A member of the RNA family "permuted transfer-messenger RNA" from Methylotenera sp., 213 nucleotides long. It is one of the family's seed sequences. The family's RNA type in Rfam is non-coding RNA gene.

Nucleotides: 213
Base pairs, nucleotide, nucleotide: 001133002132003131004130005129016121027111028110029109031107032106033105037053038052039051040050041049054092055091056090057089058088059087060086134149135148
Number, partner (000 for none) and nucleotide at each position: 001133a002132g003131c004130u005129g006000u007000u008000a009000u010000c011000c012000c013000a014000c015000u016121u017000a018000a019000a020000c021000u022000g023000a024000a025000c026000a027111a028110g029109u030000u031107c032106a033105a034000g035000a036000c037053g038052g039051g040050a041049g042000u043000u044000c045000g046000a047000c048000u049041c050040u051039c052038c053037c054092c055091a056090g057089c058088u059087c060086c061000a062000c063000g064000a065000u066000u067000a068000u069000u070000u071000a072000u073000g074000c075000c076000c077000a078000u079000u080000c081000c082000a083000c084000a085000u086060g087059g088058g089057g090056c091055u092054g093000u094000c095000a096000u097000g098000g099000u100000u101000u102000c103000g104000a105033u106032u107031g108000g109029g110028u111027u112000u113000u114000a115000u116000u117000a118000g119000g120000a121016a122000u123000a124000a125000g126000a127000g128000g129005c130004a131003g132002c133001u134149c135148g136000a137000g138000a139000g140000a141000u142000g143000a144000c145000u146000g147000a148135c149134g150000u151000a152000a153000u154000c155000a156000g157000c158000a159000u160000a161000a162000a163000a164000u165000u166000a167000a168000a169000g170000u171000a172000a173000u174000c175000g176000c177000a178000a179000a180000u181000g182000a183000u184000g185000a186000u187000a188000c189000u190000u191000u192000c193000g194000c195000u196000g197000u198000a199000g200000c201000a202000a203000u204000c205000g206000c207000u208000g209000c210000u211000u212000a213000a